Background
Shown here is a 130-nucleotide RNA sequence from Streptomyces sp. Ru87, a member of the family "Streptomyces RNA 5676". A reference for the family is Vockenhuber et al. (2011), "Deep sequencing-based identification of small non-coding RNAs in Streptomyces coelicolor", RNA Biol. From the family's description: Identified by deep sequencing of transcriptome at the end of exponential growth phase. Appears longer on northern blot than sequencing transcript. The match comes from Rfam's covariance-model search (100 bits). Pairs were carried over by alignment from the consensus structure.
[Rfam]
RNA sequence: AGAUGAGAGAAGAACCUCGCCCGCGGAACAUCGCGGGCGACACCGGAUCGGCGCCUCCCCAGCUCCGACCCGGUCGUGCCCUCGCGCACACCACCGGAGCCUCCGGCUCCGGGACUCUCCGCCGAUCGGG
Numbered sequence: 001a002g003a004u005g006a007g008a009g010a011a012g013a014a015c016c017u018c019g020c021c022c023g024c025g026g027a028a029c030a031u032c033g034c035g036g037g038c039g040a041c042a043c044c045g046g047a048u049c050g051g052c053g054c055c056u057c058c059c060c061a062g063c064u065c066c067g068a069c070c071c072g073g074u075c076g077u078g079c080c081c082u083c084g085c086g087c088a089c090a091c092c093a094c095c096g097g098a099g100c101c102u103c104c105g106g107c108u109c110c111g112g113g114a115c116u117c118u119c120c121g122c123c124g125a126u127c128g129g130g
Base pairs, nucleotide, nucleotide: 004121005120007118009117010116017040018039019038020037021036022035023034024033025032026031042074043073044072045071046070049067050066051065053063054062076089077088078087079086094112095111096110097109098108099107100106101105122129123128